The family of this 89-nucleotide RNA sequence from Medicago truncatula is "MIR2617 microRNA precursor family". A search with the family's covariance model found it, with a score of 79 bits. NCBI's taxonomy places the organism under Eukaryota, Euphyllophyta, Magnoliopsida, rosids, Medicago. Rfam 15.1 lists 1,174 matches to the family in 2 species.

[Rfam]
RNA sequence: AUGUAGUGUGACAUGCCUGUUUGAGAAUUACUUUGAUGUAUAUUUAAUUAUUAUUUAAUUGUUUUUGGGUAACGGGGUGUUACACUGCA
Numbered sequence: 001a002u003g004u005a006g007u008g009u010g011a012c013a014u015g016c017c018u019g020u021u022u023g024a025g026a027a028u029u030a031c032u033u034u035g036a037u038g039u040a041u042a043u044u045u046a047a048u049u050a051u052u053a054u055u056u057a058a059u060u061g062u063u064u065u066u067g068g069g070u071a072a073c074g075g076g077g078u079g080u081u082a083c084a085c086u087g088c089a
Base pairs, nucleotide, nucleotide: 002089003088004087005086006085007084008083009082010081011080012079013078014077016076017075018074019073020072021071